[Rfam]
RNA sequence: AGGCCCAAAGAGAGAAGCAGGGUCUGAUUCACACCUCUGUAGCAGCUGUUGAUCAGCUGUUGCUUCUCUCUUUCUCUCUG
Numbered sequence: 001a002g003g004c005c006c007a008a009a010g011a012g013a014g015a016a017g018c019a020g021g022g023u024c025u026g027a028u029u030c031a032c033a034c035c036u037c038u039g040u041a042g043c044a045g046c047u048g049u050u051g052a053u054c055a056g057c058u059g060u061u062g063c064u065u066c067u068c069u070c071u072u073u074c075u076c077u078c079u080g
Stems, first nucleotide, its partner, number of pairs: 008072013022058001024056006032048002034045001
RNA: mir-574 microRNA precursor family
Organism: Pipistrellus kuhlii